This 594-nucleotide part of an RNA from Massarina eburnea belongs to the Rfam family "Eukaryotic large subunit ribosomal RNA".
RNA sequence: CGGGGAAAGAAGACCCUAUUAAGCUUAACUCUAGUUUAACAUUGUAAAAAGACAUAGAGGGUGUAGAAUAGGUAGGAGCUUUAGCGCUAGUGAAAUACUACUACCCUUAUUGUCUUUUUACUUAUUUAAUAAAACAGAGCUAGGUCUUACUACCUAACUUCUAGCGUAAAGGUCCUUUGUAGGCCGAUCUAGGUUAAAGACAUUAUUAAGUAGGGAGUUUAGCUAGGGCGGCACAUCUGUUAAACAAUAACGCAGGUGUCCUAAGGGGGACUUAUAGAGAACAGAAAUCUCCAGUAGAGCAAAAGGGCAAAAGUCCCUUUAAUUUUAAUUUUUAGUGUGAAUACAAACUAUAAAAGUGUAGCCUAUUAAUCCUUUAGUCCCUUAAAAUUUAAGGCUAGAGGUGCUAGAAAAGUUACUACAGGGAUAACUAGCUUGUAGCAGCUAAGCGUUCAUAGCAACGUUACUUUUUAAUCCUUUAAUGUUAGCUCUUCCUAUUAUACUAAAGCAGAAUUUAGUAAGCGUUAGAUUGUUUACCUACUAAUAGGGAACGUGAGCUAGGUUUAGACUGUUGUAAGACAGGUUAGUUUUACCCUA
Numbered sequence: 001c002g003g004g005g006a007a008a009g010a011a012g013a014c015c016c017u018a019u020u021a022a023g024c025u026u027a028a029c030u031c032u033a034g035u036u037u038a039a040c041a042u043u044g045u046a047a048a049a050a051g052a053c054a055u056a057g058a059g060g061g062u063g064u065a066g067a068a069u070a071g072g073u074a075g076g077a078g079c080u081u082u083a084g085c086g087c088u089a090g091u092g093a094a095a096u097a098c099u100a101c102u103a104c105c106c107u108u109a110u111u112g113u114c115u116u117u118u119u120a121c122u123u124a125u126u127u128a129a130u131a132a133a134a135c136a137g138a139g140c141u142a143g144g145u146c147u148u149a150c151u152a153c154c155u156a157a158c159u160u161c162u163a164g165c166g167u168a169a170a171g172g173u174c175c176u177u178u179g180u181a182g183g184c185c186g187a188u189c190u191a192g193g194u195u196a197a198a199g200a201c202a203u204u205a206u207u208a209a210g211u212a213g214g215g216a217g218u219u220u221a222g223c224u225a226g227g228g229c230g231g232c233a234c235a236u237c238u239g240u241u242a243a244a245c246a247a248u249a250a251c252g253c254a255g256g257u258g259u260c261c262u263a264a265g266g267g268g269g270a271c272u273u274a275u276a277g278a279g280a281a282c283a284g285a286a287a288u289c290u291c292c293a294g295u296a297g298a299g300c301a302a303a304a305g306g307g308c309a310a311a312a313g314u315c316c317c318u319u320u321a322a323u324u325u326u327a328a329u330u331u332u333u334a335g336u337g338u339g340a341a342u343a344c345a346a347a348c349u350a351u352a353a354a355a356g357u358g359u360a361g362c363c364u365a366u367u368a369a370u371c372c373u374u375u376a377g378u379c380c381c382u383u384a385a386a387a388u389u390u391a392a393g394g395c396u397a398g399a400g401g402u403g404c405u406a407g408a409a410a411a412g413u414u415a416c417u418a419c420a421g422g423g424a425u426a427a428c429u430a431g432c433u434u435g436u437a438g439c440a441g442c443u444a445a446g447c448g449u450u451c452a453u454a455g456c457a458a459c460g461u462u463a464c465u466u467u468u469u470a471a472u473c474c475u476u477u478a479a480u481g482u483u484a485g486c487u488c489u490u491c492c493u494a495u496u497a498u499a500c501u502a503a504a505g506c507a508g509a510a511u512u513u514a515g516u517a518a519g520c521g522u523u524a525g526a527u528u529g530u531u532u533a534c535c536u537a538c539u540a541a542u543a544g545g546g547a548a549c550g551u552g553a554g555c556u557a558g559g560u561u562u563a564g565a566c567u568g569u570u571g572u573a574a575g576a577c578a579g580g581u582u583a584g585u586u587u588u589a590c591c592c593u594a
Base pairs, nucleotide, nucleotide: 003593004592005591007588008587015422016421017420020418021417022414023413024412025411026410028218029217030216031215035210036209037208038207039206041204044121045120046119047118048117049116050115051114052113053112054110055109056108057107059105060104071102072101073100074099075098078085079084125198126197127196128195129194136190137189138188143154144153145152171185172184173183174182222232223231224230235257236256237255238254239253240252260361266318267317268316269315270314271313272298273297275293277291278290279289280288299308300307323347324346325345328342329341330340331339349358350357351356372400373399374398375397376396377395380394381393382392383391431472433470435469437465438464440462441461442460446456447455483558484556485555486554487553488550489547490546491545492544493543496521499516500515501514502513503512504511523537524536525535527533564582565581566580567579568577569576570575